[Rfam]
RNA sequence: UGCAGCGCCCGAAAGGAGCCUUCCCAGCGGGCUGAGGCCGCAAGGCUCCAGUUCGUUGGCAGGGCUCCAGGGUGCUGCGAUCCGUCUAGAAACACGG
Numbered sequence: 001u002g003c004a005g006c007g008c009c010c011g012a013a014a015g016g017a018g019c020c021u022u023c024c025c026a027g028c029g030g031g032c033u034g035a036g037g038c039c040g041c042a043a044g045g046c047u048c049c050a051g052u053u054c055g056u057u058g059g060c061a062g063g064g065c066u067c068c069a070g071g072g073u074g075c076u077g078c079g080a081u082c083c084g085u086c087u088a089g090a091a092a093c094a095c096g097g
Stems, first nucleotide, its partner, number of pairs: 001079010015068002020063003024059003030054001036047004082097004
RNA: Archaeal large subunit ribosomal RNA, nucleotides 589 to 685